[Rfam]
RNA sequence: AAAUUUGUUUUCUAGGGUUCCGUAAAGAUUAAUAUCUUUAGUCUGGUCCGAGAGAAAACCAUAGUUACGACUAUGACACGGAAGGAUAAAAGCCUGGGAGAU
Numbered sequence: 001a002a003a004u005u006u007g008u009u010u011u012c013u014a015g016g017g018u019u020c021c022g023u024a025a026a027g028a029u030u031a032a033u034a035u036c037u038u039u040a041g042u043c044u045g046g047u048c049c050g051a052g053a054g055a056a057a058a059c060c061a062u063a064g065u066u067a068c069g070a071c072u073a074u075g076a077c078a079c080g081g082a083a084g085g086a087u088a089a090a091a092g093c094c095u096g097g098g099a100g101a102u
Base pairs, nucleotide, nucleotide: 007059008058009057010056011055012054015049016048020046021045022043023040024039025038026037027036028035060075061074062073063072064071065070077097079100083095084094085093
RNA: Guanidine-I riboswitch aptamer